This 130-nucleotide RNA sequence from Candidatus Vecturithrix granuli belongs to the Rfam family "c-di-GMP-I riboswitch aptamer".
A search with the family's covariance model found it, with a score of 51 bits.
The family's consensus secondary structure is taken from published work.
The organism belongs to Candidatus Vecturithrix, within Bacteria.
RNA sequence: GCCUGAGAAAACCAAACCCAUCGUGAGGUGGGGGCGGAAAGCCACGGGCCUUGGAAUUAAAGAUUGAGCAUUGAGAACCCUUUUCUCUCCAAUCUUCAUUAUUCAAUCCCAAGACAGCCGGGUUGCCAGG
Numbered sequence: 001g002c003c004u005g006a007g008a009a010a011a012c013c014a015a016a017c018c019c020a021u022c023g024u025g026a027g028g029u030g031g032g033g034g035c036g037g038a039a040a041g042c043c044a045c046g047g048g049c050c051u052u053g054g055a056a057u058u059a060a061a062g063a064u065u066g067a068g069c070a071u072u073g074a075g076a077a078c079c080c081u082u083u084u085c086u087c088u089c090c091a092a093u094c095u096u097c098a099u100u101a102u103u104c105a106a107u108c109c110c111a112a113g114a115c116a117g118c119c120g121g122g123u124u125g126c127c128a129g130g
Stems, first nucleotide, its partner, number of pairs: 012037002017032006040124004045120003048115001050113001054109001